[Rfam]
RNA sequence: ACCUGCCAGACCGCGCAGACCGCAGCUCUGAGCGCCGUGCAUUUGAGGAAGGAAGGGGCAACCAUCGGGCGCGUGCCCGUAAAUUUGCACCCCGAGACGGUUGCCGUUCGCUUCUUGCAUGGCGCGGGAUUUGGCACCUGCCCGCGCUUCAUGGUCAUCCGUCAAGCGGCUUGCGGGUGCCGCAUGAAGCCGUUCGGGGUGCCUCCCAUGAACUCUGAUGAG
Numbered sequence: 001a002c003c004u005g006c007c008a009g010a011c012c013g014c015g016c017a018g019a020c021c022g023c024a025g026c027u028c029u030g031a032g033c034g035c036c037g038u039g040c041a042u043u044u045g046a047g048g049a050a051g052g053a054a055g056g057g058g059c060a061a062c063c064a065u066c067g068g069g070c071g072c073g074u075g076c077c078c079g080u081a082a083a084u085u086u087g088c089a090c091c092c093c094g095a096g097a098c099g100g101u102u103g104c105c106g107u108u109c110g111c112u113u114c115u116u117g118c119a120u121g122g123c124g125c126g127g128g129a130u131u132u133g134g135c136a137c138c139u140g141c142c143c144g145c146g147c148u149u150c151a152u153g154g155u156c157a158u159c160c161g162u163c164a165a166g167c168g169g170c171u172u173g174c175g176g177g178u179g180c181c182g183c184a185u186g187a188a189g190c191c192g193u194u195c196g197g198g199g200u201g202c203c204u205c206c207c208a209u210g211a212a213c214u215c216u217g218a219u220g221a222g
Stems, first nucleotide, its partner, number of pairs: 004041003066079004087202008096194001097162004102157002104154002110118002121148007166193005

A member of the RNA family "RT-2 RNA" from Collinsella stercoris, 222 nucleotides long. NCBI's taxonomy places the organism under Bacteria, Bacillati, Coriobacteriia, Coriobacteriales, Collinsella stercoris. A search with the family's covariance model found it, with a score of 98 bits. The family's consensus secondary structure is taken from published work.